[Rfam]
Nucleotides: 035
Base pairs, nucleotide, nucleotide: 002034003033004032006031007030008029010028012027013026014025015024016023017021
Number, partner (000 for none) and nucleotide at each position: 001000c002034u003033g004032u005000c006031u007030c008029u009000u010028g011000c012027u013026u014025c015024a016023a017021c018000a019000g020000u021017g022000c023016u024015u025014g026013g027012a028010u029008g030007g031006g032004a033003c034002a035000u

A member of the RNA family "Iron response element I" from Ovis aries, 35 nucleotides long. The family has 62 seed sequences and 6,829 matches in Rfam 15.1. Gene Ontology term of the family: response to iron ion. Lineage of the source: Eukaryota > Boreoeutheria > Bovidae > Caprinae > Ovis.